[Rfam]
RNA sequence: AUACUCUGCUUUCUCUUCAGUUCGUAUAAAUCUUUUGCCUUUUACUAAAGAUUUCCGUGGAGAGGAAUGUUGAUGAGUUUGUACCCAAUUUUUUAAGGCUUUGCUUUGGUAAGGCU
Numbered sequence: 001a002u003a004c005u006c007u008g009c010u011u012u013c014u015c016u017u018c019a020g021u022u023c024g025u026a027u028a029a030a031u032c033u034u035u036u037g038c039c040u041u042u043u044a045c046u047a048a049a050g051a052u053u054u055c056c057g058u059g060g061a062g063a064g065g066a067a068u069g070u071u072g073a074u075g076a077g078u079u080u081g082u083a084c085c086c087a088a089u090u091u092u093u094u095a096a097g098g099c100u101u102u103g104c105u106u107u108g109g110u111a112a113g114g115c116u
Stems, first nucleotide, its partner, number of pairs: 003078004010067010028054008096116001098115006